RNA sequence: ACUGCUUUUCUUUCAAAUCCCAAAUUGUGGAGCCCGCCAAUUCUAUUUUUAGCGGGUUUUUUAUU
Dot-bracket structure: ..............................(((((((.((........)).))))))).......
Numbered sequence: 001a002c003u004g005c006u007u008u009u010c011u012u013u014c015a016a017a018u019c020c021c022a023a024a025u026u027g028u029g030g031a032g033c034c035c036g037c038c039a040a041u042u043c044u045a046u047u048u049u050u051a052g053c054g055g056g057u058u059u060u061u062u063a064u065u
Stems, first nucleotide, its partner, number of pairs: 031058007039050002